[Rfam]
Shown here is an 84-nucleotide RNA sequence from Pan troglodytes, a member of the family "mir-515 microRNA precursor family". The literature on the family includes a 2005 paper in Nat Genet by Bentwich et al., "Identification of hundreds of conserved and nonconserved human microRNAs". Clan: mir-290 clan. Its family is annotated with miRNA-mediated post-transcriptional gene silencing and RISC complex in the Gene Ontology. The organism belongs to Pan, within Eukaryota. The family has 181 seed sequences and 1,056 matches in Rfam 15.1. The sequence is in the family's curated seed alignment.

RNA sequence: UCAGGCUGUGACCCUCUAGAGGGAAGCACUUUCUGUUGCUUGAAAGAAGAGAAAGCGCUUCCUUUUAGAGGAUUACUCUUUGAG
Numbered sequence: 001u002c003a004g005g006c007u008g009u010g011a012c013c014c015u016c017u018a019g020a021g022g023g024a025a026g027c028a029c030u031u032u033c034u035g036u037u038g039c040u041u042g043a044a045a046g047a048a049g050a051g052a053a054a055g056c057g058c059u060u061c062c063u064u065u066u067a068g069a070g071g072a073u074u075a076c077u078c079u080u081u082g083a084g
Stems, first nucleotide, its partner, number of pairs: 001083003005079001008076004014070003018066010029055005036050002